[Rfam]
RNA sequence: UGUAAGGGAACUUCCGCUAAAGGCGUGCAUGUCCUGUGCACAACGCAGAAGUCACCGCAUCCUGCGGA
Numbered sequence: 001u002g003u004a005a006g007g008g009a010a011c012u013u014c015c016g017c018u019a020a021a022g023g024c025g026u027g028c029a030u031g032u033c034c035u036g037u038g039c040a041c042a043a044c045g046c047a048g049a050a051g052u053c054a055c056c057g058c059a060u061c062c063u064g065c066g067g068a
Stems, first nucleotide, its partner, number of pairs: 011051004016046002026040005055067004

A member of the RNA family "Bacillaceae-1 RNA" from Sporolactobacillus inulinus, 68 nucleotides long. A search with the family's covariance model found it, with a score of 53 bits. The base pairs follow the family's consensus structure, which is taken from published work. The family's RNA type in Rfam is small RNA.